[Rfam]
RNA sequence: UAGAACAAUGUAGAUAAGGGAAGUCGGCAAAAUAGAUCCGUAACUUCGGGAAAAGGAUUGGCUCUAAGGGUUGGGUAGUCUGGGCUGUGUUUAGAAGCCGCUGGACUGCACGUGGACUACGACUGUCGCAAGAUGGUUGCGGACUGCGAGCGGACCGGCGUGUGGAAGGGCGCAGUUUCCUCCUCACGGGGGAGUACUGGGCUACGCUGAACAACCAACUUAGAACUGGUACGGACAAGGGGAAUCUGACUGUCUAAUUAAAACAUAGCAUUGCGAUGGCCAGAAAGUGGUGUUGACGCAAUGUGAUUUCUGCCCAGUGCUCUGAAUGUCAAAGUGAAGAAAUUCAACCAAGCGCGGGUAAACGGCGGGAGUAACUAUGACUCUCUUAAGGUAGCCAAAUGCCUCGUCAUCUAAUUAGUGACGCGCAUGAAUGGAUUAACGAGAUUCCCACUGUCCCUAUCUACUAUCUAGCGAAACCACAGCCAAGGGAACGGGCUUGGCAAA
Numbered sequence: 001u002a003g004a005a006c007a008a009u010g011u012a013g014a015u016a017a018g019g020g021a022a023g024u025c026g027g028c029a030a031a032a033u034a035g036a037u038c039c040g041u042a043a044c045u046u047c048g049g050g051a052a053a054a055g056g057a058u059u060g061g062c063u064c065u066a067a068g069g070g071u072u073g074g075g076u077a078g079u080c081u082g083g084g085c086u087g088u089g090u091u092u093a094g095a096a097g098c099c100g101c102u103g104g105a106c107u108g109c110a111c112g113u114g115g116a117c118u119a120c121g122a123c124u125g126u127c128g129c130a131a132g133a134u135g136g137u138u139g140c141g142g143a144c145u146g147c148g149a150g151c152g153g154a155c156c157g158g159c160g161u162g163u164g165g166a167a168g169g170g171c172g173c174a175g176u177u178u179c180c181u182c183c184u185c186a187c188g189g190g191g192g193a194g195u196a197c198u199g200g201g202c203u204a205c206g207c208u209g210a211a212c213a214a215c216c217a218a219c220u221u222a223g224a225a226c227u228g229g230u231a232c233g234g235a236c237a238a239g240g241g242g243a244a245u246c247u248g249a250c251u252g253u254c255u256a257a258u259u260a261a262a263a264c265a266u267a268g269c270a271u272u273g274c275g276a277u278g279g280c281c282a283g284a285a286a287g288u289g290g291u292g293u294u295g296a297c298g299c300a301a302u303g304u305g306a307u308u309u310c311u312g313c314c315c316a317g318u319g320c321u322c323u324g325a326a327u328g329u330c331a332a333a334g335u336g337a338a339g340a341a342a343u344u345c346a347a348c349c350a351a352g353c354g355c356g357g358g359u360a361a362a363c364g365g366c367g368g369g370a371g372u373a374a375c376u377a378u379g380a381c382u383c384u385c386u387u388a389a390g391g392u393a394g395c396c397a398a399a400u401g402c403c404u405c406g407u408c409a410u411c412u413a414a415u416u417a418g419u420g421a422c423g424c425g426c427a428u429g430a431a432u433g434g435a436u437u438a439a440c441g442a443g444a445u446u447c448c449c450a451c452u453g454u455c456c457c458u459a460u461c462u463a464c465u466a467u468c469u470a471g472c473g474a475a476a477c478c479a480c481a482g483c484c485a486a487g488g489g490a491a492c493g494g495g496c497u498u499g500g501c502a503a504a
Base pairs, nucleotide, nucleotide: 001470002469003468004467010464011463012462013461014460015459016458018456019455020454035059036058037057038056039055044049060227061226063224064223065222066221067220068219069216070215071214072213073212075205076204077203078202079201080200081199082198083197084176085175086174088172089171090170091169097163098162100159101158102157103156104155106153107152108151109150111148112147113146114145115144117142118141120139121138122137123136124135125134126133127132228232240449241448242447243446244445245444246443247441248440251265252264253263268304269303270302271301272300273299274298275297279291280290281289282288308435309434310433312366313365314364317363318362319359320358321357322356324355327354328353329352335346336345337344338343367385368384369383370382371381372380386390406422407421408420409419410418483500484499485498486497487496
This 504-nucleotide part of an RNA from Basidiobolus meristosporus belongs to the Rfam family "Eukaryotic large subunit ribosomal RNA". Rfam 15.1 lists 107,465 matches to the family in 2,616 species. It scores 3310 bits against the family's covariance model. The source organism's lineage runs through Eukaryota, Basidiobolomycota, Basidiobolales, Basidiobolus and Basidiobolus meristosporus.